About this RNA:
A member of the RNA family "Mammalian CPEB3 ribozyme" from Crocodylus porosus, 77 nucleotides long. About the family: The mammalian CPEB3 ribozyme is a self cleaving RNA located in the second intron of the CPEB3 gene which belongs to a family of genes regulating messenger RNA polyadenylation. Rfam links the family to the GO term RNA nuclease activity. NCBI's taxonomy places the organism under Eukaryota, Opisthokonta, Deuterostomia, Sauria, Crocodylus.
RNA sequence: UCACCAUUACUUUAGGCCAGAGCAGAAGUGCUCAUAGCAUGGCCCCGUCAGAUUCCAACAAAUCUGCAUAUUCUGCU
Numbered sequence: 001u002c003a004c005c006a007u008u009a010c011u012u013u014a015g016g017c018c019a020g021a022g023c024a025g026a027a028g029u030g031c032u033c034a035u036a037g038c039a040u041g042g043c044c045c046c047g048u049c050a051g052a053u054u055c056c057a058a059c060a061a062a063u064c065u066g067c068a069u070a071u072u073c074u075g076c077u
Stems, first nucleotide, its partner, number of pairs: 015044004021077007028040003049066006